Rfam assigns this 355-nucleotide RNA sequence from Hydrogenispora ethanolica to the family "Bacterial RNase P class A". NCBI's taxonomy places the organism under Bacteria, Bacillati, Bacillota, Hydrogenispora.
RNA sequence: UAACUGUCUCGGGUGACCGCGGGUCGUAUGAUCUGAGGAAAGUCCGAGCUCCAUAGGGCAGGAUGCUGGAUAACGUCCAGGGGGGGCGACCCCACGGAAAGUGCCGCAGAAAAGAAGACGCCGAAUGGCCGCAAGGUUUCAUGGCAAUGCUGAAAAGGUGCGGUAAGAGCGCACCAGCAGUCGAGGAAUCGGCUGGCUUGGAAAACCCCAUCCGGAGCAAGACCAAAUAGGGGAGAGCUAAAGUGGCCCGCUUUUCUCCCGGGUUGGUCGCUAGAGGUGCCGGGCAACCGGCAUCGUAGAUAAAUGGUUGCCGCCCGCAAGGGUACAGAACUCGGCUUAUAGAGACAGUUAUUAC
Numbered sequence: 001u002a003a004c005u006g007u008c009u010c011g012g013g014u015g016a017c018c019g020c021g022g023g024u025c026g027u028a029u030g031a032u033c034u035g036a037g038g039a040a041a042g043u044c045c046g047a048g049c050u051c052c053a054u055a056g057g058g059c060a061g062g063a064u065g066c067u068g069g070a071u072a073a074c075g076u077c078c079a080g081g082g083g084g085g086g087c088g089a090c091c092c093c094a095c096g097g098a099a100a101g102u103g104c105c106g107c108a109g110a111a112a113a114g115a116a117g118a119c120g121c122c123g124a125a126u127g128g129c130c131g132c133a134a135g136g137u138u139u140c141a142u143g144g145c146a147a148u149g150c151u152g153a154a155a156a157g158g159u160g161c162g163g164u165a166a167g168a169g170c171g172c173a174c175c176a177g178c179a180g181u182c183g184a185g186g187a188a189u190c191g192g193c194u195g196g197c198u199u200g201g202a203a204a205a206c207c208c209c210a211u212c213c214g215g216a217g218c219a220a221g222a223c224c225a226a227a228u229a230g231g232g233g234a235g236a237g238c239u240a241a242a243g244u245g246g247c248c249c250g251c252u253u254u255u256c257u258c259c260c261g262g263g264u265u266g267g268u269c270g271c272u273a274g275a276g277g278u279g280c281c282g283g284g285c286a287a288c289c290g291g292c293a294u295c296g297u298a299g300a301u302a303a304a305u306g307g308u309u310g311c312c313g314c315c316c317g318c319a320a321g322g323g324u325a326c327a328g329a330a331c332u333c334g335g336c337u338u339a340u341a342g343a344g345a346c347a348g349u350u351a352u353u354a355c
Stems, first nucleotide, its partner, number of pairs: 001351010011340001012312007020035006040338003044335005049217004056249004061213005066080005081095001082093004096208002101206002104201002119149001120145003125142002127138003157175006177197001178195007221269004231260006240254005276295008